[Rfam]
RNA sequence: CCAGCCGGCCGGGCGACCGCUUCCGUUCAAUGUCGAAAGACGGCGGGAGAGGAAAGUCCGGGCUCCAUGGAGAAACGGUGCCGGGUAACGCCCGGCGGGGGCGACCCCAGGGAAAGUGCCACAGAAAUGAAACCGCCCCGCCUGUAGUGCGGCUGAAUCGCCGGGAUUGUCCGGUGCUGGAGCCGCAGUGCUGGCGGGGUAAGGGUGAAACGGUGGGGUAAGAGCCCACCGCGCGACUGGCAACAGGAGCGGCACGGCAAACCCCACCGGGAGCAAGACCGAAUAGGAAUGACGUGGCGGCCGCGAGGUCGUCAGCCUUCUCCAGGCCAGUCGUUCGGGUGGGUUGCUUGAGGCGCCGCGCAAGCGGCGUCCCAGAGGAAUGGUCGCCGGUCAGCCGCAAGGCUGUCCCACAGAACCCGGCUUAUAGGCCGGCUGGCAUC
Numbered sequence: 001c002c003a004g005c006c007g008g009c010c011g012g013g014c015g016a017c018c019g020c021u022u023c024c025g026u027u028c029a030a031u032g033u034c035g036a037a038a039g040a041c042g043g044c045g046g047g048a049g050a051g052g053a054a055a056g057u058c059c060g061g062g063c064u065c066c067a068u069g070g071a072g073a074a075a076c077g078g079u080g081c082c083g084g085g086u087a088a089c090g091c092c093c094g095g096c097g098g099g100g101g102c103g104a105c106c107c108c109a110g111g112g113a114a115a116g117u118g119c120c121a122c123a124g125a126a127a128u129g130a131a132a133c134c135g136c137c138c139c140g141c142c143u144g145u146a147g148u149g150c151g152g153c154u155g156a157a158u159c160g161c162c163g164g165g166a167u168u169g170u171c172c173g174g175u176g177c178u179g180g181a182g183c184c185g186c187a188g189u190g191c192u193g194g195c196g197g198g199g200u201a202a203g204g205g206u207g208a209a210a211c212g213g214u215g216g217g218g219u220a221a222g223a224g225c226c227c228a229c230c231g232c233g234c235g236a237c238u239g240g241c242a243a244c245a246g247g248a249g250c251g252g253c254a255c256g257g258c259a260a261a262c263c264c265c266a267c268c269g270g271g272a273g274c275a276a277g278a279c280c281g282a283a284u285a286g287g288a289a290u291g292a293c294g295u296g297g298c299g300g301c302c303g304c305g306a307g308g309u310c311g312u313c314a315g316c317c318u319u320c321u322c323c324a325g326g327c328c329a330g331u332c333g334u335u336c337g338g339g340u341g342g343g344u345u346g347c348u349u350g351a352g353g354c355g356c357c358g359c360g361c362a363a364g365c366g367g368c369g370u371c372c373c374a375g376a377g378g379a380a381u382g383g384u385c386g387c388c389g390g391u392c393a394g395c396c397g398c399a400a401g402g403c404u405g406u407c408c409c410a411c412a413g414a415a416c417c418c419g420g421c422u423u424a425u426a427g428g429c430c431g432g433c434u435g436g437c438a439u440c
Stems, first nucleotide, its partner, number of pairs: 001436010011425001012388007020049008054423003058420005063273004072322002076269005081095005096110001097108004111264002116262002118258003133204002135200008212230006231253001232251003237246003277345004287336006315327004352371008
RNA: Bacterial RNase P class A
Organism: Consotaella salsifontis